About this RNA:
TPP riboswitch aptamer (THI element): a 108-nucleotide sequence from Ideonella aquatica. It scores 59 bits against the family's covariance model.
[Rfam]
Nucleotides: 108
Base pairs, nucleotide, nucleotide: 006096008094009093010092011058012057013056014055016052017044018043019042020041021040022039023038024037064089065088066087067086070083071082072081073080
Number, partner (000 for none) and nucleotide at each position: 001000c002000g003000c004000a005000u006096c007000c008094g009093c010092u011058a012057g013056g014055g015000g016052u017044g018043c019042u020041c021040c022039c023038g024037g025000c026000c027000g028000g029000c030000g031000a032000c033000g034000g035000u036000c037024c038023c039022g040021g041020g042019g043018g044017c045000u046000g047000a048000g049000a050000a051000a052016a053000c054000a055014c056013c057012c058011u059000u060000u061000g062000a063000a064089c065088c066087u067086g068000a069000c070083u071082g072081a073080g074000g075000u076000a077000a078000u079000c080073c081072u082071c083070g084000c085000g086067c087066a088065g089064g090000g091000a092010a093009g094008c095000a096006g097000c098000c099000g100000u101000c102000c103000u104000u105000c106000g107000g108000c